[Rfam]
RNA sequence: ACCUGAAGUAGAGGUGCGAUUAUUAUAAGUAUCUUCUUUGAGCUGACUGCGUUGAUAAGAAGGGAAAGGAAUAACCGCCGAAAUCAAUCAAGCGUCAUCUUGAUUGGUUGGGAUCGUUACCGAAAGGGACGAUACUGUCAUAGUAAUUAUUUUGUUUAACUAUGGAGCGCUACGAGUUAG
Dot-bracket structure: .......((((....(((.(((((.......(((((((..................)))))))......))))).)))...(((((((((((......)))))))))))((.((((((.(.....).)))))).)).(((((((..............)))))))....)))).......
Annotation:
The family of this 180-nucleotide RNA sequence from Gallibacterium salpingitidis is "Lysine riboswitch aptamer". The base pairs follow the family's consensus structure, which is taken from published work. The source organism's lineage runs through Bacteria, Pseudomonadati, Gammaproteobacteria, Pasteurellales and Gallibacterium. Gene Ontology term of the family: lysine biosynthetic process.